[Rfam]
RNA sequence: UGGUCAUAGAAUAACUUAUUCUGUGGUCACUCUGAGUUUUGAUAAUUACCAUGCUAAUUUAUCAGACUACAAUAACUCUUUACUGAGUGAUUUACUAUAACAUUAUGGUAAAUAUCACCGUGAGUUAUAGUAACACGAGUGUCGUAAAUGCAUAUUCAUGUUAUCGUAAAUUAGUACAAACAUUAUCGUAAAUCAAGGUGGUUAUGGAUUAAGUUAUUCUAUGGCCA
Numbered sequence: 001u002g003g004u005c006a007u008a009g010a011a012u013a014a015c016u017u018a019u020u021c022u023g024u025g026g027u028c029a030c031u032c033u034g035a036g037u038u039u040u041g042a043u044a045a046u047u048a049c050c051a052u053g054c055u056a057a058u059u060u061a062u063c064a065g066a067c068u069a070c071a072a073u074a075a076c077u078c079u080u081u082a083c084u085g086a087g088u089g090a091u092u093u094a095c096u097a098u099a100a101c102a103u104u105a106u107g108g109u110a111a112a113u114a115u116c117a118c119c120g121u122g123a124g125u126u127a128u129a130g131u132a133a134c135a136c137g138a139g140u141g142u143c144g145u146a147a148a149u150g151c152a153u154a155u156u157c158a159u160g161u162u163a164u165c166g167u168a169a170a171u172u173a174g175u176a177c178a179a180a181c182a183u184u185a186u187c188g189u190a191a192a193u194c195a196a197g198g199u200g201g202u203u204a205u206g207g208a209u210u211a212a213g214u215u216a217u218u219c220u221a222u223g224g225c226c227a
Stems, first nucleotide, its partner, number of pairs: 001227018020208012033195001037191002040188007052176011065165002069161003074155001079148005087142003091138002093132009103122001108116001
Dot-bracket structure: ((((((((((((((((((.((((((((((((.(...((.(((((((.....(((((((((((..((..(((..(....(((((...(((.(((((((((((.(....(.......).....).)))))))))....)).))).)))))......)...)))..))))))))))))).....))))))).))...).)))))))))))).))))))))))))))))))
A member of the RNA family "MIR6217 microRNA precursor family" from Miscanthus lutarioriparius, 227 nucleotides long. The match comes from Rfam's covariance-model search (150 bits).